Overview: Shown here is a 254-nucleotide RNA sequence from Danionella cerebrum, a member of the family "RNase MRP". Lineage of the source: Eukaryota > Teleostomi > Neopterygii > Teleostei > Danionella. A search with the family's covariance model found it, with a score of 111 bits. The family is grouped with related families in Rfam's "RNaseP clan". It is annotated as a ribozyme.
[Rfam]
RNA sequence: GCGCAUGCCUGAAAACUUGUCGUCUAAGCUACUUACUGGGAGCAAGGUUUCACCAACGUUGCUUAGGGGAAAGUCCCCGGACAUUGGGCAGAAAUGUCCUGCAUAUCGCGCAGUUACUGGCUUAGCAUUGCGUCUCCAUGCUAAGAAGUCUCUAUGACUGAGCUGGGCGCCUAGCGAGUCAACUUUGUCACGAAAAUAGAAACGCAAGUGUCGUACAUUGUACUUCAACAGAAUGGGGCUCAUUUCAGCAUACG
Numbered sequence: 001g002c003g004c005a006u007g008c009c010u011g012a013a014a015a016c017u018u019g020u021c022g023u024c025u026a027a028g029c030u031a032c033u034u035a036c037u038g039g040g041a042g043c044a045a046g047g048u049u050u051c052a053c054c055a056a057c058g059u060u061g062c063u064u065a066g067g068g069g070a071a072a073g074u075c076c077c078c079g080g081a082c083a084u085u086g087g088g089c090a091g092a093a094a095u096g097u098c099c100u101g102c103a104u105a106u107c108g109c110g111c112a113g114u115u116a117c118u119g120g121c122u123u124a125g126c127a128u129u130g131c132g133u134c135u136c137c138a139u140g141c142u143a144a145g146a147a148g149u150c151u152c153u154a155u156g157a158c159u160g161a162g163c164u165g166g167g168c169g170c171c172u173a174g175c176g177a178g179u180c181a182a183c184u185u186u187g188u189c190a191c192g193a194a195a196a197u198a199g200a201a202a203c204g205c206a207a208g209u210g211u212c213g214u215a216c217a218u219u220g221u222a223c224u225u226c227a228a229c230a231g232a233a234u235g236g237g238g239c240u241c242a243u244u245u246c247a248g249c250a251u252a253c254g
Stems, first nucleotide, its partner, number of pairs: 002254002005251004011246002015209006023067007040051003072240002075238004087098004099113004104108001115182001121178003130170004140163002148158003213223004